Annotation:
A member of the RNA family "U2 spliceosomal RNA" from Chelonia mydas, 210 nucleotides long. Taxonomically the source falls in Chelonia (Eukaryota, Teleostomi, Tetrapoda, Sauropsida). For this family Rfam cites "The uRNA database" (Zwieb, Nucleic Acids Res, 1997).

RNA sequence: AUUGUUCCUCUGCCUGAGCACAGGUAGCCACAAGCAAGCUAAGAUCAAAGUGUCGUCUCUGUUCUUAUCAGUUUAAUAUCUGAUAUGUCCUUUAUUUGAGGACUGUAUAUUAAAUUGAUUUUUGAAACAGGGGGCUGGAAUAGGAGCUUGCUUUGUCCACCCCGUGCAUUGACCUGGUAUUGCAGUGUCUCCAGGAACAAAAAACCAAAA
Numbered sequence: 001a002u003u004g005u006u007c008c009u010c011u012g013c014c015u016g017a018g019c020a021c022a023g024g025u026a027g028c029c030a031c032a033a034g035c036a037a038g039c040u041a042a043g044a045u046c047a048a049a050g051u052g053u054c055g056u057c058u059c060u061g062u063u064c065u066u067a068u069c070a071g072u073u074u075a076a077u078a079u080c081u082g083a084u085a086u087g088u089c090c091u092u093u094a095u096u097u098g099a100g101g102a103c104u105g106u107a108u109a110u111u112a113a114a115u116u117g118a119u120u121u122u123u124g125a126a127a128c129a130g131g132g133g134g135c136u137g138g139a140a141u142a143g144g145a146g147c148u149u150g151c152u153u154u155g156u157c158c159a160c161c162c163c164g165u166g167c168a169u170u171g172a173c174c175u176g177g178u179a180u181u182g183c184a185g186u187g188u189c190u191c192c193a194g195g196a197a198c199a200a201a202a203a204a205c206c207a208a209a210a
Stems, first nucleotide, its partner, number of pairs: 008043002012039002066085006087103006131163004137157002143154004169200003173195005